This 78-nucleotide sequence from Schistosoma japonicum belongs to the Rfam family "mir-3492 microRNA precursor family".
It scores 53 bits against the family's covariance model.
Pairs were carried over by alignment from the consensus structure, which was predicted with RNAalifold.
Its family is annotated with miRNA-mediated post-transcriptional gene silencing and RISC complex in the Gene Ontology.
Rfam 15.1 lists 21,496 matches to the family in 13 species.
The organism belongs to Schistosoma, within Eukaryota.
RNA sequence: AACUUUCUGAAUCCAAGUUGAGAUUUCACCAGACAUCAACCUCUCAGGGUUGGUGAGACUUCCGAGAUAAGUGAAGUG
Numbered sequence: 001a002a003c004u005u006u007c008u009g010a011a012u013c014c015a016a017g018u019u020g021a022g023a024u025u026u027c028a029c030c031a032g033a034c035a036u037c038a039a040c041c042u043c044u045c046a047g048g049g050u051u052g053g054u055g056a057g058a059c060u061u062c063c064g065a066g067a068u069a070a071g072u073g074a075a076g077u078g
Stems, first nucleotide, its partner, number of pairs: 002077005008071001011068003017062001020061003024058007